[Rfam]
RNA sequence: AGUAAUAACUAGGGGAGUCCAAAAAGUUGGGCUGAGAAAGAAACACGUUGAAGUUUCUUGACUCUUGGGACCUGAUCUGGCUCAUACCAGCGUGGGGAAGUUAGAAUAAUUAUAG
Numbered sequence: 001a002g003u004a005a006u007a008a009c010u011a012g013g014g015g016a017g018u019c020c021a022a023a024a025a026g027u028u029g030g031g032c033u034g035a036g037a038a039a040g041a042a043a044c045a046c047g048u049u050g051a052a053g054u055u056u057c058u059u060g061a062c063u064c065u066u067g068g069g070a071c072c073u074g075a076u077c078u079g080g081c082u083c084a085u086a087c088c089a090g091c092g093u094g095g096g097g098a099a100g101u102u103a104g105a106a107u108a109a110u111u112a113u114a115g
Stems, first nucleotide, its partner, number of pairs: 006103005011065004016059001017032005039058005071096004077090004

A member of the RNA family "TPP riboswitch aptamer (THI element)" from Litchfieldia salsa, 115 nucleotides long. NCBI's taxonomy places the organism under Bacteria, Bacillati, Caryophanales, Bacillaceae, Litchfieldia. The family's consensus secondary structure is taken from published work. The match comes from Rfam's covariance-model search (77 bits). Vitamin B(1) in its active form thiamin pyrophosphate (TPP) is an essential coenzyme that is synthesised by coupling of pyrimidine and thiazole moieties in bacteria. The previously detected thiamin-regulatory element, thi box was extended, resulting in a new, highly conserved RNA secondary structure, the THI element, which is widely distributed in eubacteria and also occurs in some archaea. Analysis of operon structures identified a large number of new candidate thiamin-regulated genes, mostly transporters, in various prokaryotic organisms.